[Rfam]
RNA: Small nucleolar RNA SNORA43
RNA sequence: CCAGCCCUGCACCUGCUAGCAUCGCAGGUCAGGCUGCUUUGCCAUACCUGUGACACUGGGGGCAAAGAGCAAGUGGUUAUUUCUACACUCAGCGUUCACAAGCCAGUGAGUGCGGGGAGGGUGGAUAACCUGACAUGU
Numbered sequence: 001c002c003a004g005c006c007c008u009g010c011a012c013c014u015g016c017u018a019g020c021a022u023c024g025c026a027g028g029u030c031a032g033g034c035u036g037c038u039u040u041g042c043c044a045u046a047c048c049u050g051u052g053a054c055a056c057u058g059g060g061g062g063c064a065a066a067g068a069g070c071a072a073g074u075g076g077u078u079a080u081u082u083c084u085a086c087a088c089u090c091a092g093c094g095u096u097c098a099c100a101a102g103c104c105a106g107u108g109a110g111u112g113c114g115g116g117g118a119g120g121g122u123g124g125a126u127a128a129c130c131u132g133a134c135a136u137g138u
Stems, first nucleotide, its partner, number of pairs: 004063003007059003024051004075130003083121002088117002093112006